RNA sequence: UAUAAGCUUUCAUAUCUCAUUCGUAUAUCCUUAAAAAUUGGUUUAAGGGUCUCUACUUAGAAACCGUAAAUUUCUAGCUACGAAAAAUGUGCAAUAAUUU
Numbered sequence: 001u002a003u004a005a006g007c008u009u010u011c012a013u014a015u016c017u018c019a020u021u022c023g024u025a026u027a028u029c030c031u032u033a034a035a036a037a038u039u040g041g042u043u044u045a046a047g048g049g050u051c052u053c054u055a056c057u058u059a060g061a062a063a064c065c066g067u068a069a070a071u072u073u074c075u076a077g078c079u080a081c082g083a084a085a086a087a088u089g090u091g092c093a094a095u096a097a098u099u100u
Stems, first nucleotide, its partner, number of pairs: 020084006029048007057077007
RNA: Purine riboswitch aptamer